[Rfam]
RNA sequence: CAUCAUUCUCAGGGCGGGGCGAAAUUCCCCACCGGCGGUAAGCGGUUCCCGCAAGCCCGCGAGCGGCCCCACGGGGUGUCAGCAGAUCUGGUGCGAUUCCAGAGCCGACGGUCACAGUCCGGAUGGAAGAGAAUGCGA
Dot-bracket structure: ...(((((((......(((.......))).[[((((((................[[))))..((.................))...(((((.......)))))]])).(((.....]]))).......)))))))...

Rfam assigns this 138-nucleotide sequence from Sulfitobacter sp. D7 to the family "FMN riboswitch aptamer (RFN element)". The family's consensus secondary structure is taken from published work. The organism belongs to Sulfitobacter, within Bacteria.